[Rfam]
RNA sequence: AAAAGUCUUCGGGGCAGGGUGAGGGAAUGUGUUUCCCAAUUCCCGAUCGGCGGUGAAAGCCCGUACGUCACGUUGUGACAUGAUCUGGGGAAGUUCCAGAGCCGACGGUACAGUCCGACAGGAGAAGACUACA
Numbered sequence: 001a002a003a004a005g006u007c008u009u010c011g012g013g014g015c016a017g018g019g020u021g022a023g024g025g026a027a028u029g030u031g032u033u034u035c036c037c038a039a040u041u042c043c044c045g046a047u048c049g050g051c052g053g054u055g056a057a058a059g060c061c062c063g064u065a066c067g068u069c070a071c072g073u074u075g076u077g078a079c080a081u082g083a084u085c086u087g088g089g090g091a092a093g094u095u096c097c098a099g100a101g102c103c104g105a106c107g108g109u110a111c112a113g114u115c116c117g118a119c120a121g122g123a124g125a126a127g128a129c130u131a132c133a
Stems, first nucleotide, its partner, number of pairs: 004130007017044003046114002048104002050064004059102002067079002084100005106117003